The family of this 161-nucleotide RNA from Diplocloster agilis is "FMN riboswitch aptamer (RFN element)". Taxonomically the source falls in Diplocloster (Bacteria, Bacillati, Clostridia, Lachnospiraceae).
RNA sequence: GAGAUUCUUCGGGGCAGGGUGACUUCCGUGAAUGGAAGAAUUCCCGACCGGCGGUAAAGUCCGCGACCCGCCGCAAGGCGGCUGAUCUGGUGAGCGCCGUUUCAUUAAGAAACGCGUCAAUUCCGGAACCGACAGUAAAGUCUGGAUGAAAGAAGAAAGAU
Numbered sequence: 001g002a003g004a005u006u007c008u009u010c011g012g013g014g015c016a017g018g019g020u021g022a023c024u025u026c027c028g029u030g031a032a033u034g035g036a037a038g039a040a041u042u043c044c045c046g047a048c049c050g051g052c053g054g055u056a057a058a059g060u061c062c063g064c065g066a067c068c069c070g071c072c073g074c075a076a077g078g079c080g081g082c083u084g085a086u087c088u089g090g091u092g093a094g095c096g097c098c099g100u101u102u103c104a105u106u107a108a109g110a111a112a113c114g115c116g117u118c119a120a121u122u123c124c125g126g127a128a129c130c131g132a133c134a135g136u137a138a139a140g141u142c143u144g145g146a147u148g149a150a151a152g153a154a155g156a157a158a159g160a161u
Stems, first nucleotide, its partner, number of pairs: 005157006017045003047141002049131002051064004059129002068081002086127005133144003